[Rfam]
RNA sequence: GAGUCUGACAUGCGUGCGAGUCGACGGGUUCUGAAACCUGGGAUGCGCAAGGAAGCUGACGAGCGGGAGGCCUUCACGGGCUGCACCGCUGGCCGACCCUGAUCUUCUGUGAAGGGUUCGAGUUGGAGCACGCCUGUCGGGACCCGAAAGAUGGUGAACUAUGCCUGAGCGGGGCGAAGCCAGAGGAAACUCUGGUGGAGGCUCGAAGCGAUACUGACGUGCAAAUCGUUCGUCUGACUUGGGUAUAGGGGCGAAAGACUAAUCGAACCAUCUAGUAGCUGGUU
Number, nucleotide and partner (000 for none) at each position: 001g000002a000003g000004u000005c140006u139007g138008a137009c136010a135011u000012g133013c132014g131015u130016g129017c128018g000019a000020g046021u045022c000023g000024a000025c040026g039027g038028g037029u036030u035031c000032u000033g000034a000035a030036a029037c028038c027039u026040g025041g000042g000043a000044u000045g021046c020047g000048c000049a000050a057051g056052g000053a000054a000055g000056c051057u050058g000059a000060c000061g000062a090063g089064c088065g087066g086067g000068a000069g082070g081071c080072c000073u000074u000075c000076a000077c000078g000079g000080g071081c070082u069083g000084c000085a000086c066087c065088g064089c063090u062091g000092g123093c122094c120095g119096a118097c116098c115099c114100u000101g000102a000103u000104c109105u000106u000107c000108u000109g104110u000111g000112a000113a000114g099115g098116g097117u000118u096119c095120g094121a000122g093123u092124u000125g000126g000127a000128g017129c016130a015131c014132g013133c012134c000135u010136g009137u008138c007139g006140g005141g000142a000143c282144c281145c000146g279147a000148a000149a000150g272151a271152u270153g269154g268155u267156g000157a000158a000159c248160u247161a246162u245163g244164c243165c242166u241167g240168a239169g238170c236171g000172g204173g203174g202175c201176g000177a000178a000179g196180c195181c194182a193183g192184a191185g190186g000187a000188a000189a000190c185191u184192c183193u182194g181195g180196u179197g000198g000199a000200g000201g175202c174203u173204c172205g000206a000207a000208g233209c232210g231211a230212u000213a229214c228215u000216g227217a226218c000219g000220u000221g000222c000223a000224a000225a000226u217227c216228g214229u213230u211231c210232g209233u208234c000235u000236g170237a000238c169239u168240u167241g166242g165243g164244u163245a162246u161247a160248g159249g000250g260251g259252c000253g000254a000255a000256a000257g000258a000259c251260u250261a000262a000263u000264c000265g000266a000267a155268c154269c153270a152271u151272c150273u000274a000275g000276u000277a000278g000279c146280u000281g144282g143283u000284u000
About this RNA: The family of this 284-nucleotide part of an RNA from Sorghum bicolor is "Eukaryotic large subunit ribosomal RNA". NCBI's taxonomy places the organism under Eukaryota, Viridiplantae, Streptophyta, Andropogoneae, Sorghum. Pairs were carried over by alignment from the consensus structure, which is taken from published work.